The family of this 112-nucleotide sequence from Medicago truncatula is "Small nucleolar RNA Z152/R70/R12/". The family has 9 seed sequences and 604 matches in Rfam 15.1. A reference for the family is Barneche et al. (2001), "Identification of 66 box C/D snoRNAs in Arabidopsis thaliana: extensive gene duplications generated multiple isoforms predicting new ribosomal RNA 2'-O-methylation sites", J Mol Biol. Pairs were carried over by alignment from the consensus structure, which was predicted with PFOLD. Lineage of the source: Eukaryota > Viridiplantae > Spermatophyta > Mesangiospermae > Medicago.
[Rfam]
RNA sequence: GGUGCGAUGAUGAGAUUAAAACACCAAGGAAGUGUUUGUGGGCAGUGGACAUAAUUAUAAUGGUUUUGCCGUGAGCCUAUUUUUAAAACGACUUCUCCUUCCACUGAGCACC
Number, nucleotide and partner (000 for none) at each position: 001g112002g111003u110004g109005c108006g000007a000008u000009g000010a000011u000012g000013a000014g000015a000016u000017u000018a000019a000020a000021a000022c000023a000024c000025c000026a000027a000028g000029g000030a000031a000032g000033u000034g000035u000036u000037u000038g000039u000040g000041g000042g000043c000044a000045g000046u000047g000048g000049a000050c000051a000052u000053a000054a000055u000056u000057a000058u000059a000060a000061u000062g000063g000064u000065u000066u000067u000068g000069c000070c000071g000072u000073g000074a000075g000076c000077c000078u000079a000080u000081u000082u000083u000084u000085a000086a000087a000088a000089c000090g000091a000092c000093u000094u000095c000096u000097c000098c000099u000100u000101c000102c000103a000104c000105u000106g000107a000108g005109c004110a003111c002112c001